[Rfam]
RNA sequence: UAACCAAGGCCGUAAGGUUUUGCUGAGCGUGCAGGAGUCAGCAGAGGUCAUAGUGCGUGAGUAAGGGACGCCUGAAAAAGGGAAGGGC
Numbered sequence: 001u002a003a004c005c006a007a008g009g010c011c012g013u014a015a016g017g018u019u020u021u022g023c024u025g026a027g028c029g030u031g032c033a034g035g036a037g038u039c040a041g042c043a044g045a046g047g048u049c050a051u052a053g054u055g056c057g058u059g060a061g062u063a064a065g066g067g068a069c070g071c072c073u074g075a076a077a078a079a080g081g082g083a084a085g086g087g088c
Stems, first nucleotide, its partner, number of pairs: 001025002005022007038045002047088003056081001058079001
A member of the RNA family "Group II catalytic intron D1-D4-1" from Xylanibacillus composti, 88 nucleotides long. The literature on the family includes a 2001 paper in Trends Genet by Bonen and Vogel, "The ins and outs of group II introns". The match comes from Rfam's covariance-model search (51 bits).